Overview
Rfam assigns this 373-nucleotide RNA from Clostridium sp. USBA 49 to the family "Bacterial RNase P class A". Taxonomically the source falls in Clostridium (Bacteria, Bacillota, Clostridia, Eubacteriales). By type it is a ribozyme. The match comes from Rfam's covariance-model search (323 bits).
RNA sequence: UGAGUAAGUCAGACAGUCGCUGCUUAAUAUUUAUAAGUAUUAAGGAGAGGAAAGUCCGAGCUCCAUAGGGCAGGGUGCUGGGUAACCCCCAGUGGAGGCGACUCUAAGGAAAGUGCAACAGAGAUAUACCGCCAAAAUAAAUUUUUAUUUUGGUAAGGGUGGAAAGGCGAGGUAAGAGCUCACCAGCGCAAUGGCGACUUUGCGGCUAUGUAAACCCCACCUGGAGCAAGACUGAAUAGGAAGGCAUCAUCUGUAAUAAGAUGAAGGAGUUGCCCGCUCCGCCUUCGGGUAUGUCGCUUGAGCUUAUUGGCAACAAUAAGCCUAGAUAGAUGACUGUUUAAUACAGAACUCGGCUUAUAGAUUUGCUCAACAU
Numbered sequence: 001u002g003a004g005u006a007a008g009u010c011a012g013a014c015a016g017u018c019g020c021u022g023c024u025u026a027a028u029a030u031u032u033a034u035a036a037g038u039a040u041u042a043a044g045g046a047g048a049g050g051a052a053a054g055u056c057c058g059a060g061c062u063c064c065a066u067a068g069g070g071c072a073g074g075g076u077g078c079u080g081g082g083u084a085a086c087c088c089c090c091a092g093u094g095g096a097g098g099c100g101a102c103u104c105u106a107a108g109g110a111a112a113g114u115g116c117a118a119c120a121g122a123g124a125u126a127u128a129c130c131g132c133c134a135a136a137a138u139a140a141a142u143u144u145u146u147a148u149u150u151u152g153g154u155a156a157g158g159g160u161g162g163a164a165a166g167g168c169g170a171g172g173u174a175a176g177a178g179c180u181c182a183c184c185a186g187c188g189c190a191a192u193g194g195c196g197a198c199u200u201u202g203c204g205g206c207u208a209u210g211u212a213a214a215c216c217c218c219a220c221c222u223g224g225a226g227c228a229a230g231a232c233u234g235a236a237u238a239g240g241a242a243g244g245c246a247u248c249a250u251c252u253g254u255a256a257u258a259a260g261a262u263g264a265a266g267g268a269g270u271u272g273c274c275c276g277c278u279c280c281g282c283c284u285u286c287g288g289g290u291a292u293g294u295c296g297c298u299u300g301a302g303c304u305u306a307u308u309g310g311c312a313a314c315a316a317u318a319a320g321c322c323u324a325g326a327u328a329g330a331u332g333a334c335u336g337u338u339u340a341a342u343a344c345a346g347a348a349c350u351c352g353g354c355u356u357a358u359a360g361a362u363u364u365g366c367u368c369a370a371c372a373u
Base pairs, nucleotide, nucleotide: 001369002368003367004366005365006364007363008362009361010360011358012338013337014336015335016334017333018332020047021046023044024043025042026041027040028039029038030037052356053355054354056353057352058351059350060349061226062225063224064223068275069274070273071272073222074221075220076219077218078092079091080090081089082088093107094105095104096103097102108217109216113215114214115211116210117209129158130157131154132153133152134151135150136149137148138147139146166184167183169181170180171179186206187204188203189202190201191200193198230295231294232293240286241285242284243283244282245281266280267279268278269277270276302321303320304319305318306317307316308315309314